Description
The record is a 220-nucleotide RNA sequence from Mizuhopecten yessoensis, which matches "Small nucleolar RNA SNORA53" in Rfam. Rfam's curators write: The snoRNA ACA53 belongs to the H/ACA family of pseudouridylation guide snoRNAs. Lineage of the source: Eukaryota > Bilateria > Pectinida > Pectinoidea > Mizuhopecten. Gene Ontology terms of the family: nucleolus and RNA processing. The match comes from Rfam's covariance-model search (96 bits). Pairs were carried over by alignment from the consensus structure, which was predicted with RNAalifold.
RNA sequence: AACACGCUCCUUAGAUCCACCCUUGGGACAUGUGCUCAAGACCGACCUGCAUGGCAGCACUGCUGUGUGGCCCUGUAUUGUGUUGUCCAGCAACUUUGUUGGUUGUACGUCGAGGGGGAUUGAGUCAUUGGCGUGUGAUAUAAAUAUACCUCAGUCUCAGGUCCUGCACUGACCAAACUGUCCAUUCUGUGUGGUCAGUUUGACCUGUGACUUGGACAGU
Numbered sequence: 001a002a003c004a005c006g007c008u009c010c011u012u013a014g015a016u017c018c019a020c021c022c023u024u025g026g027g028a029c030a031u032g033u034g035c036u037c038a039a040g041a042c043c044g045a046c047c048u049g050c051a052u053g054g055c056a057g058c059a060c061u062g063c064u065g066u067g068u069g070g071c072c073c074u075g076u077a078u079u080g081u082g083u084u085g086u087c088c089a090g091c092a093a094c095u096u097u098g099u100u101g102g103u104u105g106u107a108c109g110u111c112g113a114g115g116g117g118g119a120u121u122g123a124g125u126c127a128u129u130g131g132c133g134u135g136u137g138a139u140a141u142a143a144a145u146a147u148a149c150c151u152c153a154g155u156c157u158c159a160g161g162u163c164c165u166g167c168a169c170u171g172a173c174c175a176a177a178c179u180g181u182c183c184a185u186u187c188u189g190u191g192u193g194g195u196c197a198g199u200u201u202g203a204c205c206u207g208u209g210a211c212u213u214g215g216a217c218a219g220u
Stems, first nucleotide, its partner, number of pairs: 002136007010124005018118001020116006026088005035082001037080002041076002044073001047070004055065004090106006150215002153212002156209001158207004168199008179191003